[Rfam]
mir-44 microRNA precursor family: an 82-nucleotide RNA from Brugia malayi. The source organism's lineage runs through Eukaryota, Opisthokonta, Nematoda, Rhabditida and Brugia. Pairs were carried over by alignment from the consensus structure, which was predicted with RNAalifold. The family has 13 seed sequences and 66 matches in Rfam 15.1. On this family, see de Wit et al., Genome Res 2009: "Repertoire and evolution of miRNA genes in four divergent nematode species". Rfam's curators put it in the seed alignment.
RNA sequence: UAAGUACCAUUCUGGAUGUUUCUCUGAGUCAUAUGUCAAAUUUAUAUAUCUACGACUAGAGGAACAUUCAGCAUUGGUUAUG
Number, nucleotide and partner (000 for none) at each position: 001u000002a000003a000004g000005u000006a078007c077008c076009a075010u000011u000012c071013u070014g069015g068016a067017u066018g065019u064020u063021u000022c062023u061024c000025u000026g000027a057028g056029u055030c054031a000032u052033a051034u000035g000036u000037c000038a000039a000040a000041u000042u000043u000044a000045u000046a000047u000048a000049u000050c000051u033052a032053c000054g030055a029056c028057u027058a000059g000060a000061g023062g022063a020064a019065c018066a017067u016068u015069c014070a013071g012072c000073a000074u000075u009076g008077g007078u006079u000080a000081u000082g000